[Rfam]
RNA sequence: UAAAUAGCUCGGUAGGUGAGGUUACCACAAGGAUAAGGGUUGCUGCCGCAAAAUAGUGGAGACACUAUGAGAAGGUUAGCAGUCUAUGUCGAAACCAAGGCAUAGACUAAUGCAAUUUCAUCGCCUUGUGAUGCUGAAGCUUGAACGAUAAUAAAGUAA
Numbered sequence: 001u002a003a004a005u006a007g008c009u010c011g012g013u014a015g016g017u018g019a020g021g022u023u024a025c026c027a028c029a030a031g032g033a034u035a036a037g038g039g040u041u042g043c044u045g046c047c048g049c050a051a052a053a054u055a056g057u058g059g060a061g062a063c064a065c066u067a068u069g070a071g072a073a074g075g076u077u078a079g080c081a082g083u084c085u086a087u088g089u090c091g092a093a094a095c096c097a098a099g100g101c102a103u104a105g106a107c108u109a110a111u112g113c114a115a116u117u118u119c120a121u122c123g124c125c126u127u128g129u130g131a132u133g134c135u136g137a138a139g140c141u142u143g144a145a146c147g148a149u150a151a152u153a154a155a156g157u158a159a
Stems, first nucleotide, its partner, number of pairs: 005155001009151001011146001013098001015141003020135003026130007039116005046074001049071001055066004082107004088101003

This 159-nucleotide RNA sequence from Clostridium sartagoforme belongs to the Rfam family "M-box riboswitch aptamer (ykoK leader)".
For this family Rfam cites "New RNA motifs suggest an expanded scope for riboswitches in bacterial genetic control" (Barrick et al., Proc Natl Acad Sci U S A, 2004).
Its family is annotated with response to magnesium ion and regulation of gene expression in the Gene Ontology.
Rfam describes the family as follows. M-box riboswitch, also know as ykoK leader is described as a metaloregulatory RNA that sense divalent metals and function as a genetic control element of genes related to divalent metal transport in bacteria. It was first reported upstream of the B.subtilis ykoK gene and genes with related functions in other bacteria.
Taxonomically the source falls in Clostridium (Bacteria, Bacillati, Bacillota, Clostridiaceae).